[Rfam]
RNA sequence: AGUCAUAUGCUUGUCUCAAAGAUUAAGCCAUGCAUGUCUAAGUAUAAACUGCUUAUACUGUGAAACUGCGAAUGGCUCAUUAAAUCAGUUAUAGUUUAUUUGGUGGUACCUUACUACUCGGAUAACCGUAGUAAUUCUAGAGCUAAUACGUGCGUAAAUCCCGACUUCUGGAAGGGACGUAUAUAUUAGAUAAAAGGCCGACCGAGCUUUGCUCGACCCGCGGUGAAUCAUGAUAUCUUCACGAAGCGCAUGGCCUUGUGCCGGCGCUGUUCCAUUCAAAUUUCUGCCCUAUCAACUUUCGAUGGUAGGAUAGAGGCCUACCAUGGUGGUAACGGGUGACGGAGGAUUAGGGUUCGAUUCCGGAGAGGGAGCCUGAGAAACGGCUACCACAUCCAAGGAAGGCAGCAGGCGCGCAAAUUACCCAAUCCUGAUACGGGGAGGUAGUGACAAUAAAUAACAAUACCGGGCAUUUCAUGUCUGGUAAUUGGAAUGAGUACAAUCUAAAUCCCUUAACGAGGAUCCAUUGGAGGGCAAGUCUGGUGCCAGCAGCCGCGGUAAUUCCAGCUCCAAUAGCGUAUAUUUAAGUUGUUG
Numbered sequence: 001a002g003u004c005a006u007a008u009g010c011u012u013g014u015c016u017c018a019a020a021g022a023u024u025a026a027g028c029c030a031u032g033c034a035u036g037u038c039u040a041a042g043u044a045u046a047a048a049c050u051g052c053u054u055a056u057a058c059u060g061u062g063a064a065a066c067u068g069c070g071a072a073u074g075g076c077u078c079a080u081u082a083a084a085u086c087a088g089u090u091a092u093a094g095u096u097u098a099u100u101u102g103g104u105g106g107u108a109c110c111u112u113a114c115u116a117c118u119c120g121g122a123u124a125a126c127c128g129u130a131g132u133a134a135u136u137c138u139a140g141a142g143c144u145a146a147u148a149c150g151u152g153c154g155u156a157a158a159u160c161c162c163g164a165c166u167u168c169u170g171g172a173a174g175g176g177a178c179g180u181a182u183a184u185a186u187u188a189g190a191u192a193a194a195a196g197g198c199c200g201a202c203c204g205a206g207c208u209u210u211g212c213u214c215g216a217c218c219c220g221c222g223g224u225g226a227a228u229c230a231u232g233a234u235a236u237c238u239u240c241a242c243g244a245a246g247c248g249c250a251u252g253g254c255c256u257u258g259u260g261c262c263g264g265c266g267c268u269g270u271u272c273c274a275u276u277c278a279a280a281u282u283u284c285u286g287c288c289c290u291a292u293c294a295a296c297u298u299u300c301g302a303u304g305g306u307a308g309g310a311u312a313g314a315g316g317c318c319u320a321c322c323a324u325g326g327u328g329g330u331a332a333c334g335g336g337u338g339a340c341g342g343a344g345g346a347u348u349a350g351g352g353u354u355c356g357a358u359u360c361c362g363g364a365g366a367g368g369g370a371g372c373c374u375g376a377g378a379a380a381c382g383g384c385u386a387c388c389a390c391a392u393c394c395a396a397g398g399a400a401g402g403c404a405g406c407a408g409g410c411g412c413g414c415a416a417a418u419u420a421c422c423c424a425a426u427c428c429u430g431a432u433a434c435g436g437g438g439a440g441g442u443a444g445u446g447a448c449a450a451u452a453a454a455u456a457a458c459a460a461u462a463c464c465g466g467g468c469a470u471u472u473c474a475u476g477u478c479u480g481g482u483a484a485u486u487g488g489a490a491u492g493a494g495u496a497c498a499a500u501c502u503a504a505a506u507c508c509c510u511u512a513a514c515g516a517g518g519a520u521c522c523a524u525u526g527g528a529g530g531g532c533a534a535g536u537c538u539g540g541u542g543c544c545a546g547c548a549g550c551c552g553c554g555g556u557a558a559u560u561c562c563a564g565c566u567c568c569a570a571u572a573g574c575g576u577a578u579a580u581u582u583a584a585g586u587u588g589u590u591g
Base pairs, nucleotide, nucleotide: 001581002580003579005578006577007576008575009574010573011572014452016450020445021412027410028409029408031407032406033405036069037068041067042066043065048061049060076365077364078363086286087285088284091281092280095279096278101274102273103272117152119150120149126142129139130138131137159177160176161175162174165171166170183236184235185234186233187232188231197224198223199222200221205213206212207211246267247266248265249264251263252262253261254260288336289335290334295327296326297325302324303323304322305321306320307319308318309317340362341361342360343359344355345354346353347352367388368387370385371384372383390401392399393398418443420442421441422440426438427437428436429435430434458487459486460485461483462482463481464480465479466478467477468476469475470474494514495513496511498510524570525569526568527567528566529565537564538563539562540561546553547552
RNA: Eukaryotic small subunit ribosomal RNA, nucleotides 22 to 612
Organism: Scenedesmus sp. NREL 46B-D3